Rfam assigns this 109-nucleotide RNA from Capsicum baccatum to the family "MIR162_1 microRNA precursor family". Rfam links the family to the GO terms miRNA-mediated post-transcriptional gene silencing and RISC complex. For this family Rfam cites "MicroRNAs in plants" (Reinhart et al., Genes Dev, 2002). A search with the family's covariance model found it, with a score of 88 bits. Its Rfam clan is "MIR167 microRNA precursor clan". Lineage of the source: Eukaryota > Embryophyta > Gunneridae > Capsiceae > Capsicum.
RNA sequence: GUUGAGAAUUCUGGAGGCAGCGGUUGAUCGAUCUGUUCCCUGCAAAGCUAUAAACAAAAUAUAGCAAGCUGGAAUCGAUCGAUAAACCUCUGCAUCCGGCGCGCUUAUA
Numbered sequence: 001g002u003u004g005a006g007a008a009u010u011c012u013g014g015a016g017g018c019a020g021c022g023g024u025u026g027a028u029c030g031a032u033c034u035g036u037u038c039c040c041u042g043c044a045a046a047g048c049u050a051u052a053a054a055c056a057a058a059a060u061a062u063a064g065c066a067a068g069c070u071g072g073a074a075u076c077g078a079u080c081g082a083u084a085a086a087c088c089u090c091u092g093c094a095u096c097c098g099g100c101g102c103g104c105u106u107a108u109a
Base pairs, nucleotide, nucleotide: 013097014096015095018092019091020090022088023087024086025085027083028082029081030080031079032078033077036074037073038072